This 107-nucleotide RNA sequence from Hevea brasiliensis belongs to the Rfam family "Small nucleolar RNA snoR109". Gene Ontology terms of the family: RNA processing and nucleolus. The match comes from Rfam's covariance-model search (56 bits). Pairs were carried over by alignment from the consensus structure, which was predicted with WAR.
[Rfam]
RNA sequence: CAGCUGUAGCUCUACUAAUUAUGGUUGACAAGUUAACUGGCCGGUUGUUGUGUGAUAUUUCUUUGAGAACUCCAAUGACAUAUCUACUUACCGACCUUCUCACAUUU
Numbered sequence: 001c002a003g004c005u006g007u008a009g010c011u012c013u014a015c016u017a018a019u020u021a022u023g024g025u026u027g028a029c030a031a032g033u034u035a036a037c038u039g040g041c042c043g044g045u046u047g048u049u050g051u052g053u054g055a056u057a058u059u060u061c062u063u064u065g066a067g068a069a070c071u072c073c074a075a076u077g078a079c080a081u082a083u084c085u086a087c088u089u090a091c092c093g094a095c096c097u098u099c100u101c102a103c104a105u106u107u
Stems, first nucleotide, its partner, number of pairs: 027101002030098003034094001039088002043084003047079004